This 191-nucleotide RNA sequence from Microtus ochrogaster belongs to the Rfam family "U2 spliceosomal RNA". The literature on the family includes a 1997 paper in Nucleic Acids Res by Zwieb, "The uRNA database". U2 is a small nuclear RNA (snRNA) component of the spliceosome (involved in pre-mRNA splicing). Complementary binding between U2 snRNA (in an area lying towards the 5' end but 3' to hairpin I) and the branchpoint sequence (BPS) of the intron results the bulging out of an unpaired adenosine, on the BPS, which initiates a nucleophilic attack at the intronic 5' splice site, thus starting the first of two transesterification reactions that mediate splicing. By type it is a spliceosomal small nuclear RNA. The base pairs follow the family's consensus structure, which is taken from published work.
RNA sequence: AAUAUUUCCUGGUCUUUUGGCUAAGAUCAAGUGUAGCAUUUAUUUUUAUCAGUUUAAUAUCUGAUAUGUCCUCUAUCCAAUGACAACAUAGUAAGAGGAUUUUUGUAGGUAGGGGUUGGAAUGGAAGCUUGUUUCACCUAUUUCAUGAAUUGACCUGGUAUUUCAGGACCUCCAGGAAUGGUGAAAAAAAU
Numbered sequence: 001a002a003u004a005u006u007u008c009c010u011g012g013u014c015u016u017u018u019g020g021c022u023a024a025g026a027u028c029a030a031g032u033g034u035a036g037c038a039u040u041u042a043u044u045u046u047u048a049u050c051a052g053u054u055u056a057a058u059a060u061c062u063g064a065u066a067u068g069u070c071c072u073c074u075a076u077c078c079a080a081u082g083a084c085a086a087c088a089u090a091g092u093a094a095g096a097g098g099a100u101u102u103u104u105g106u107a108g109g110u111a112g113g114g115g116u117u118g119g120a121a122u123g124g125a126a127g128c129u130u131g132u133u134u135c136a137c138c139u140a141u142u143u144c145a146u147g148a149a150u151u152g153a154c155c156u157g158g159u160a161u162u163u164c165a166g167g168a169c170c171u172c173c174a175g176g177a178a179u180g181g182u183g184a185a186a187a188a189a190a191u
Stems, first nucleotide, its partner, number of pairs: 007026002011022004047066006068084003072080001112144005118138002124135004149182004154176005

Taxonomically the source falls in Microtus (Eukaryota, Teleostomi, Boreoeutheria, Arvicolinae).